[Rfam]
RNA: MIR4371 microRNA precursor family
RNA sequence: CCGUUAGGUGAUGAUGUGGCAGAUAGAGUGUCACGUCAUCACACCAAUCACUAACACGUCAGUGCCAUAUCAUUAGCGGUGAUGAUGUAGCAAUGAGGUGUCUGUGACAAGGCAUAAUGACACGGCACUCCGUCUACCACGUCAUCACUUAACGAAA
Numbered sequence: 001c002c003g004u005u006a007g008g009u010g011a012u013g014a015u016g017u018g019g020c021a022g023a024u025a026g027a028g029u030g031u032c033a034c035g036u037c038a039u040c041a042c043a044c045c046a047a048u049c050a051c052u053a054a055c056a057c058g059u060c061a062g063u064g065c066c067a068u069a070u071c072a073u074u075a076g077c078g079g080u081g082a083u084g085a086u087g088u089a090g091c092a093a094u095g096a097g098g099u100g101u102c103u104g105u106g107a108c109a110a111g112g113c114a115u116a117a118u119g120a121c122a123c124g125g126c127a128c129u130c131c132g133u134c135u136a137c138c139a140c141g142u143c144a145u146c147a148c149u150u151a152a153c154g155a156a157a
Stems, first nucleotide, its partner, number of pairs: 002154018021135004026130007035121005041115001044112002048107004054101004069086005